RNA sequence: CAGGUUCCGGUUCACGUCCUUCGAUGACCAGCACAUUGGGCGACCCGGCGACC
Numbered sequence: 001c002a003g004g005u006u007c008c009g010g011u012u013c014a015c016g017u018c019c020u021u022c023g024a025u026g027a028c029c030a031g032c033a034c035a036u037u038g039g040g041c042g043a044c045c046c047g048g049c050g051a052c053c
Stems, first nucleotide, its partner, number of pairs: 003053003007048004015042005023037004
This 53-nucleotide RNA sequence belongs to the Rfam family "L31-Actinobacteria ribosomal protein leader". A reference for the family is Eckert and Weinberg (2020), "Discovery of 20 novel ribosomal leader candidates in bacteria and archaea", BMC Microbiol. It is one of the family's seed sequences.